[Rfam]
RNA sequence: CUCCUGAAUGUAAUUGAGGGGAUGACUCUUGCCAAAAGGGUGAGGGCCGGAGCAUGGUCAGCUUCGGGAAAGUAUUAAUUAGGAUGCAGAGACCACAUCCUGAAAGC
Numbered sequence: 001c002u003c004c005u006g007a008a009u010g011u012a013a014u015u016g017a018g019g020g021g022a023u024g025a026c027u028c029u030u031g032c033c034a035a036a037a038g039g040g041u042g043a044g045g046g047c048c049g050g051a052g053c054a055u056g057g058u059c060a061g062c063u064u065c066g067g068g069a070a071a072g073u074a075u076u077a078a079u080u081a082g083g084a085u086g087c088a089g090a091g092a093c094c095a096c097a098u099c100c101u102g103a104a105a106g107c
Stems, first nucleotide, its partner, number of pairs: 001021005027045006047067007080102007
RNA: engA RNA